[Rfam]
RNA sequence: GGCCGAGCGUGAGGCUAAUACAAGACCCGCAAGGGAAAUAUGCCCGCCGACUAGUUGCGGUUUUGAGCGCUUGGCCGCCAUGCU
Numbered sequence: 001g002g003c004c005g006a007g008c009g010u011g012a013g014g015c016u017a018a019u020a021c022a023a024g025a026c027c028c029g030c031a032a033g034g035g036a037a038a039u040a041u042g043c044c045c046g047c048c049g050a051c052u053a054g055u056u057g058c059g060g061u062u063u064u065g066a067g068c069g070c071u072u073g074g075c076c077g078c079c080a081u082g083c084u
Stems, first nucleotide, its partner, number of pairs: 001076009013044003016040002026035003046061004
This 84-nucleotide RNA sequence from Noviherbaspirillum cavernae belongs to the Rfam family "sRNA-Xcc1". Pairs were carried over by alignment from the consensus structure, which was predicted with RNAalifold. It is annotated as a small RNA. NCBI's taxonomy places the organism under Bacteria, Pseudomonadati, Pseudomonadota, Burkholderiales, Noviherbaspirillum. The literature on the family includes a 2011 paper in RNA Biol by Chen et al., "sRNA-Xcc1, an integron-encoded transposon- and plasmid-transferred trans-acting sRNA, is under the positive control of the key virulence regulators HrpG and HrpX of Xanthomonas campestris pathovar campestris".